Source information: FMN riboswitch aptamer (RFN element): a 150-nucleotide RNA sequence from Mangrovibacter sp. MFB070. Lineage of the source: Bacteria > Pseudomonadota > Gammaproteobacteria > Enterobacterales > Mangrovibacter. The base pairs follow the family's consensus structure, which is taken from published work. About the family: The RFN element is a highly conserved domain that is found frequently in the 5'-untranslated regions of prokaryotic mRNAs that encode for flavin mononucleotide (FMN) biosynthesis and transport proteins. This element is a metabolite-dependent riboswitch that directly binds FMN in the absence of proteins. In Bacillus subtilis, the riboswitch most likely controls gene expression by causing premature transcription termination within the 5' untranslated region of the ribDEAHT operon and precluding access to the ribosome-binding site of ypaA mRNA.The FMN riboswitch structure, reported in present an FMN-bound six-stem junction, adopts a butterfly-like scaffold, stapled together by opposingly directed but nearly identically folded peripheral domains. The match comes from Rfam's covariance-model search (117 bits).
RNA sequence: GUUUAUUCUCAGGGCGGGGCGAAAUUCCCCACCGGCGGUAAAUCAGCUCUUUGCUGAAAGCCCGCGAGCGCUCCGCUGUCAUGGCGGAGGUCAGCAGACUCGGUGUAAUUCCGGGGCCGACGGUUAGAGUCCGGAUGGGAGAGGAUAGCG
Numbered sequence: 001g002u003u004u005a006u007u008c009u010c011a012g013g014g015c016g017g018g019g020c021g022a023a024a025u026u027c028c029c030c031a032c033c034g035g036c037g038g039u040a041a042a043u044c045a046g047c048u049c050u051u052u053g054c055u056g057a058a059a060g061c062c063c064g065c066g067a068g069c070g071c072u073c074c075g076c077u078g079u080c081a082u083g084g085c086g087g088a089g090g091u092c093a094g095c096a097g098a099c100u101c102g103g104u105g106u107a108a109u110u111c112c113g114g115g116g117c118c119g120a121c122g123g124u125u126a127g128a129g130u131c132c133g134g135a136u137g138g139g140a141g142a143g144g145a146u147a148g149c150g
Stems, first nucleotide, its partner, number of pairs: 003148008017029003031130002033119002035065004060117002068095002099115005121133003